[Rfam]
Purine riboswitch aptamer: a 102-nucleotide RNA from Erysipelotrichaceae bacterium OH741_COT-311. The family's consensus secondary structure is taken from published work. The source organism's lineage runs through Bacteria, Bacillati, Bacillota, Erysipelotrichales and Erysipelotrichaceae.

RNA sequence: AGCCGAGUAAAACAAAAACACCGUAUAUUCUUGCGGAUAUGGCGCAAGAGUUUCUACGCCGAUACCUUAAAUGUUGGCUCUACGAUGAAAGUGAUUUUUUUA
Numbered sequence: 001a002g003c004c005g006a007g008u009a010a011a012a013c014a015a016a017a018a019c020a021c022c023g024u025a026u027a028u029u030c031u032u033g034c035g036g037a038u039a040u041g042g043c044g045c046a047a048g049a050g051u052u053u054c055u056a057c058g059c060c061g062a063u064a065c066c067u068u069a070a071a072u073g074u075u076g077g078c079u080c081u082a083c084g085a086u087g088a089a090a091g092u093g094a095u096u097u098u099u100u101u102a
Stems, first nucleotide, its partner, number of pairs: 019087002022084004029049007058078007
Dot-bracket structure: ..................((.((((...(((((((.......)))))))........(((((((.......)))))))..)))).))...............